[Rfam]
The family of this 196-nucleotide sequence from Photobacterium ganghwense is "GcvB RNA". Rfam's curators write: The gcvB gene encodes a small untranslated RNA involved in expression of the dipeptide and oligopeptide transport systems in Escherichia coli. Rfam classes the family as a non-coding RNA gene.
RNA sequence: UCACCCCGCAACGGUGAGGGAGGCCAAGUUUUUCGCCCUCAGGCACUUUGGCCUCAGCAUAGUUGCGAUGUUGUGUUUGCAUAUUAUCCGGGUUGUUCCGGAUGGGUAGUCAAUCUACCGAUUUUACUUCCUGUAUUUUUGACCUGUCUGUCAAAAUUCAUUCUUGGCACUGCGCCCCAACGCAGUGCUUUUUUUU
Numbered sequence: 001u002c003a004c005c006c007c008g009c010a011a012c013g014g015u016g017a018g019g020g021a022g023g024c025c026a027a028g029u030u031u032u033u034c035g036c037c038c039u040c041a042g043g044c045a046c047u048u049u050g051g052c053c054u055c056a057g058c059a060u061a062g063u064u065g066c067g068a069u070g071u072u073g074u075g076u077u078u079g080c081a082u083a084u085u086a087u088c089c090g091g092g093u094u095g096u097u098c099c100g101g102a103u104g105g106g107u108a109g110u111c112a113a114u115c116u117a118c119c120g121a122u123u124u125u126a127c128u129u130c131c132u133g134u135a136u137u138u139u140u141g142a143c144c145u146g147u148c149u150g151u152c153a154a155a156a157u158u159c160a161u162u163c164u165u166g167g168c169a170c171u172g173c174g175c176c177c178c179a180a181c182g183c184a185g186u187g188c189u190u191u192u193u194u195u196u
Stems, first nucleotide, its partner, number of pairs: 012057001015056002021054006028048001031045001033043002035040001086103006105119005166189008

The literature on the family includes a 2009 paper in BMC Genomics by Jin et al., "Small noncoding RNA GcvB is a novel regulator of acid resistance in Escherichia coli".